RAGATH-18 RNA: a 62-nucleotide RNA from Clostridium arbusti. It is annotated as a small RNA. Rfam describes the family as follows. Actinobacteria, Firmicutes, Fusobacteria, Thermotogae (1 example). NCBI's taxonomy places the organism under Bacteria, Bacillati, Bacillota, Clostridiaceae, Clostridium arbusti.
[Rfam]
RNA sequence: CCUAUGGAGUGUUAUAACAAACCAAAGUAGCUUUGGCAAAAUGGAACACUAUGAAUUAGGAA
Numbered sequence: 001c002c003u004a005u006g007g008a009g010u011g012u013u014a015u016a017a018c019a020a021a022c023c024a025a026a027g028u029a030g031c032u033u034u035g036g037c038a039a040a041a042u043g044g045a046a047c048a049c050u051a052u053g054a055a056u057u058a059g060g061a062a
Stems, first nucleotide, its partner, number of pairs: 001060004009049005022044003030037002